[Rfam]
This 75-nucleotide sequence from Flavobacteria bacterium BBFL7 belongs to the Rfam family "Flavo-1 RNA". The organism belongs to Flavobacteriia, within Bacteria. The family's consensus secondary structure is taken from published work.

RNA sequence: AUAGAACUGCGUUAAGGAUUGUAACGGCAUCCUUUUGCGAUGGAGCAAAAGAUAUAGUGAAAAGCCUGACCCGAU
Numbered sequence: 001a002u003a004g005a006a007c008u009g010c011g012u013u014a015a016g017g018a019u020u021g022u023a024a025c026g027g028c029a030u031c032c033u034u035u036u037g038c039g040a041u042g043g044a045g046c047a048a049a050a051g052a053u054a055u056a057g058u059g060a061a062a063a064g065c066c067u068g069a070c071c072c073g074a075u
Stems, first nucleotide, its partner, number of pairs: 015067003019063002024058002029053003033048002035043003